RNA sequence: GGGGAAGAGAAAGCGCCAGGGCCCACGGGGCCGACGAGGCGGAGGGUGAUCGAAGAUUCGGCGGAUGCCCUCCCGGCUUUGGCAGAAGAGAUUCUGCCCGGUCGUGACCGGCGCCACAAAACCCGCUGGCAACAGCGGGGACAAAGGGCGUUCGGGGAACAAUU
Numbered sequence: 001g002g003g004g005a006a007g008a009g010a011a012a013g014c015g016c017c018a019g020g021g022c023c024c025a026c027g028g029g030g031c032c033g034a035c036g037a038g039g040c041g042g043a044g045g046g047u048g049a050u051c052g053a054a055g056a057u058u059c060g061g062c063g064g065a066u067g068c069c070c071u072c073c074c075g076g077c078u079u080u081g082g083c084a085g086a087a088g089a090g091a092u093u094c095u096g097c098c099c100g101g102u103c104g105u106g107a108c109c110g111g112c113g114c115c116a117c118a119a120a121a122c123c124c125g126c127u128g129g130c131a132a133c134a135g136c137g138g139g140g141a142c143a144a145a146g147g148g149c150g151u152u153c154g155g156g157g158a159a160c161a162a163u164u
Stems, first nucleotide, its partner, number of pairs: 020032005041073005050061004074104005108154001110152005122139007
RNA: glmS glucosamine-6-phosphate activated ribozyme aptamer